[Rfam]
RNA sequence: CCUGCAUCCCUUACUCAUGUGAGCAGUCGUCUCUAUGUCAAAGGGACUACUCGGUGAGUAAGGAUCGCAGG
Numbered sequence: 001c002c003u004g005c006a007u008c009c010c011u012u013a014c015u016c017a018u019g020u021g022a023g024c025a026g027u028c029g030u031c032u033c034u035a036u037g038u039c040a041a042a043g044g045g046a047c048u049a050c051u052c053g054g055u056g057a058g059u060a061a062g063g064a065u066c067g068c069a070g071g
Base pairs, nucleotide, nucleotide: 001071002070003069004068005067006065007064008063009062011061012060013059014058015057016056017055018054020053021052022051023050025048026047027046028045
RNA: mir-1729 microRNA precursor family
Organism: Oceanodroma tethys